[Rfam]
RNA sequence: GAAGUCCCUGUUGGGCAAGGUCUAACCAACCACCCAUACCGAGUGUUGCACCGAAACUGGUAACAGUUAGGUGAAGCGUACACAGGGAACCAUAUAGACCACAGGGGAGACCGUAAUCCCUGAAGCAUAUUGAGCCUCGUAAACGCUAAAGCAGAUGGCGACAUGUUUAACGUCAUGGAAGCCAAUACAGAGAGGUCGUUAAAGGUGAGACUUCCGAGGAUCUGUCGGGGUCCAAGAACG
Numbered sequence: 001g002a003a004g005u006c007c008c009u010g011u012u013g014g015g016c017a018a019g020g021u022c023u024a025a026c027c028a029a030c031c032a033c034c035c036a037u038a039c040c041g042a043g044u045g046u047u048g049c050a051c052c053g054a055a056a057c058u059g060g061u062a063a064c065a066g067u068u069a070g071g072u073g074a075a076g077c078g079u080a081c082a083c084a085g086g087g088a089a090c091c092a093u094a095u096a097g098a099c100c101a102c103a104g105g106g107g108a109g110a111c112c113g114u115a116a117u118c119c120c121u122g123a124a125g126c127a128u129a130u131u132g133a134g135c136c137u138c139g140u141a142a143a144c145g146c147u148a149a150a151g152c153a154g155a156u157g158g159c160g161a162c163a164u165g166u167u168u169a170a171c172g173u174c175a176u177g178g179a180a181g182c183c184a185a186u187a188c189a190g191a192g193a194g195g196u197c198g199u200u201a202a203a204g205g206u207g208a209g210a211c212u213u214c215c216g217a218g219g220a221u222c223u224g225u226c227g228g229g230g231u232c233c234a235a236g237a238a239c240g
Stems, first nucleotide, its partner, number of pairs: 012036004019031003023208001025206002039086002043083004047078002049073004055068005131234001132232001134231006151225006157183003162177004188219001192214006
RNA: Group II catalytic intron D1-D4-6
Organism: Natronincola peptidivorans